[Rfam]
RNA sequence: UGUCCAAUUCCAGGGACCAUGACAAAAGCAAUGACAUCAUGGGUCCUGUUAGAUUCAUCUGAAUCUGUGAAUUCUGUU
Numbered sequence: 001u002g003u004c005c006a007a008u009u010c011c012a013g014g015g016a017c018c019a020u021g022a023c024a025a026a027a028g029c030a031a032u033g034a035c036a037u038c039a040u041g042g043g044u045c046c047u048g049u050u051a052g053a054u055u056c057a058u059c060u061g062a063a064u065c066u067g068u069g070a071a072u073u074c075u076g077u078u
Stems, first nucleotide, its partner, number of pairs: 013046003017042002021078004026073002028040001050067007
RNA: Mammalian CPEB3 ribozyme